[Rfam]
RNA sequence: GUCCCGGUAGCUCAGCUGGAUAGAGCACAGGUUUCCUAAACCUGGGGUCAGGGGUUCGAAUCCCUUCCGGGACA
Numbered sequence: 001g002u003c004c005c006g007g008u009a010g011c012u013c014a015g016c017u018g019g020a021u022a023g024a025g026c027a028c029a030g031g032u033u034u035c036c037u038a039a040a041c042c043u044g045g046g047g048u049c050a051g052g053g054g055u056u057c058g059a060a061u062c063c064c065u066u067c068c069g070g071g072a073c074a
Stems, first nucleotide, its partner, number of pairs: 001073007010026004028044005050066005
The family of this 74-nucleotide RNA from Aureimonas jatrophae is "tRNA". By type it is a transfer RNA. The organism belongs to Aureimonas, within Bacteria. Rfam links the family to the GO term triplet codon-amino acid adaptor activity. Pairs were carried over by alignment from the consensus structure, which is taken from published work.